[Rfam]
RNA: L2-Alphaproteobacteria ribosomal protein leader
RNA sequence: GGCCACCUCCGGGGGGCUUUACCAAAGGCGGUUAAACUGCCGACAUAGCAAACGGAAGACAGAAA
Numbered sequence: 001g002g003c004c005a006c007c008u009c010c011g012g013g014g015g016g017c018u019u020u021a022c023c024a025a026a027g028g029c030g031g032u033u034a035a036a037c038u039g040c041c042g043a044c045a046u047a048g049c050a051a052a053c054g055g056a057a058g059a060c061a062g063a064a065a
Stems, first nucleotide, its partner, number of pairs: 001018004006014003027041005
Dot-bracket structure: ((((.(((...)))))))........(((((.....)))))........................